[Rfam]
RNA sequence: GGGUCAAUGAUGAGAACUCAUGGUCAUGAAGAGAGAUGAGGACCAAAAAUCAUGCUCAAUAGGAUUAAUGCUGAGGCCC
Numbered sequence: 001g002g003g004u005c006a007a008u009g010a011u012g013a014g015a016a017c018u019c020a021u022g023g024u025c026a027u028g029a030a031g032a033g034a035g036a037u038g039a040g041g042a043c044c045a046a047a048a049a050u051c052a053u054g055c056u057c058a059a060u061a062g063g064a065u066u067a068a069u070g071c072u073g074a075g076g077c078c079c
Stems, first nucleotide, its partner, number of pairs: 001079004005073002008070002
The record is a 79-nucleotide RNA sequence from Lipotes vexillifer, which matches "Small nucleolar RNA SNORD115" in Rfam. NCBI's taxonomy places the organism under Eukaryota, Eumetazoa, Bilateria, Sarcopterygii, Lipotes. A search with the family's covariance model found it, with a score of 76 bits. On this family, see Cavaille et al., Proc Natl Acad Sci U S A 2000: "Identification of brain-specific and imprinted small nucleolar RNA genes exhibiting an unusual genomic organization".